[Rfam]
RNA sequence: AGGGUGUGCUCAGAGCAAGGAGCCUGAAGGAUGGCUCCUCUGUUUACAACACACCCAAUAGCAAUCUGAGGUCAUUGUGAGAAGGGGCACAAAAUUUGUGUCCUCCCUAUGAACAAAUGCCCCUACACAU
Numbered sequence: 001a002g003g004g005u006g007u008g009c010u011c012a013g014a015g016c017a018a019g020g021a022g023c024c025u026g027a028a029g030g031a032u033g034g035c036u037c038c039u040c041u042g043u044u045u046a047c048a049a050c051a052c053a054c055c056c057a058a059u060a061g062c063a064a065u066c067u068g069a070g071g072u073c074a075u076u077g078u079g080a081g082a083a084g085g086g087g088c089a090c091a092a093a094a095u096u097u098g099u100g101u102c103c104u105c106c107c108u109a110u111g112a113a114c115a116a117a118u119g120c121c122c123c124u125a126c127a128c129a130u
Stems, first nucleotide, its partner, number of pairs: 002056007013045005019039002022035003070122001071120002076115003082110001084104003088100005
Notes
Rfam assigns this 130-nucleotide RNA from Prolemur simus to the family "Small nucleolar RNA SNORA11". Rfam links the family to the GO terms RNA processing and nucleolus. The family has 35 seed sequences and 2,014 matches in Rfam 15.1. The source organism's lineage runs through Eukaryota, Sarcopterygii, Dipnotetrapodomorpha, Lemuridae and Prolemur. It scores 127 bits against the family's covariance model. From the family's description: U107 (SNORA11) is a member of the H/ACA class of snoRNAs that guide the sites of modification of uridines to pseudouridines. This snoRNA was identified by RT-PCR from blood cells and its expression confirmed by Northern blot analysis. There is no predicted target for this guide snRNA.